[Rfam]
RNA sequence: GGCUGGUCUGAGUGCAGUGCUGUUUAUAACUAACUGAUCACAGCCGGUUAUAAAUCUCUUUGUUCCUUCUCCAUUCCCACUGCUUCACUUGACUAGCUUUUA
Numbered sequence: 001g002g003c004u005g006g007u008c009u010g011a012g013u014g015c016a017g018u019g020c021u022g023u024u025u026a027u028a029a030c031u032a033a034c035u036g037a038u039c040a041c042a043g044c045c046g047g048u049u050a051u052a053a054a055u056c057u058c059u060u061u062g063u064u065c066c067u068u069c070u071c072c073a074u075u076c077c078c079a080c081u082g083c084u085u086c087a088c089u090u091g092a093c094u095a096g097c098u099u100u101u102a
Stems, first nucleotide, its partner, number of pairs: 001098008010090002014086001016081004022076001028064003032060002
RNA: Y RNA
Organism: Saimiri boliviensis